Peptidase-S11 RNA: an 86-nucleotide RNA. The base pairs follow the family's consensus structure, which is taken from published work.

RNA sequence: CGUAUGAUGCUGCGGCCAGCUCGUGCGCGUUUUACUGUGCGCGGGCGGCCUGUGUUCAACACAGCGCACAUCUCUGACCGGUAACU
Numbered sequence: 001c002g003u004a005u006g007a008u009g010c011u012g013c014g015g016c017c018a019g020c021u022c023g024u025g026c027g028c029g030u031u032u033u034a035c036u037g038u039g040c041g042c043g044g045g046c047g048g049c050c051u052g053u054g055u056u057c058a059a060c061a062c063a064g065c066g067c068a069c070a071u072c073u074c075u076g077a078c079c080g081g082u083a084a085c086u
Stems, first nucleotide, its partner, number of pairs: 015049003019046009050064006